RNA sequence: CUCUUAUCUUGAGCGGUGGAGGGGCUGGCCCUAUGAAACCGCGGCAACCUCAAAUGUUUUUUUAUUUGAAAGGUGCCAACUCCUGCAAAGCAGCUGCUUUGACAGAUAAGGG
Dot-bracket structure: ((((((((....(((((...(((.[.[[)))......)))))((((.((((((((........))))))..))))))...(]].]((((((....))))))..)))))))))